RNA sequence: GAGUGUUACAGCUCUCCUAGAAUUUGUCUAGCAGGCUUUCUGGUUUUUGCCUGAAAGCCCCU
Numbered sequence: 001g002a003g004u005g006u007u008a009c010a011g012c013u014c015u016c017c018u019a020g021a022a023u024u025u026g027u028c029u030a031g032c033a034g035g036c037u038u039u040c041u042g043g044u045u046u047u048u049g050c051c052u053g054a055a056a057g058c059c060c061c062u
Base pairs, nucleotide, nucleotide: 034059035058036057037056038055039054040053042051043050044049
RNA: U7 small nuclear RNA
Organism: Saimiri boliviensis